[Rfam]
RNA sequence: GUCCCCGUAGCUCAGCCGGAUAGAGCGCGUCCCUCCUAAGGACGAGGCCACAGGUUCGACUCCUGUCGGGGACG
Numbered sequence: 001g002u003c004c005c006c007g008u009a010g011c012u013c014a015g016c017c018g019g020a021u022a023g024a025g026c027g028c029g030u031c032c033c034u035c036c037u038a039a040g041g042a043c044g045a046g047g048c049c050a051c052a053g054g055u056u057c058g059a060c061u062c063c064u065g066u067c068g069g070g071g072a073c074g
Base pairs, nucleotide, nucleotide: 001073002072003071004070005069006068007067010026011025012024013023028044029043030042031041032040050066051065052064053063054062
RNA: tRNA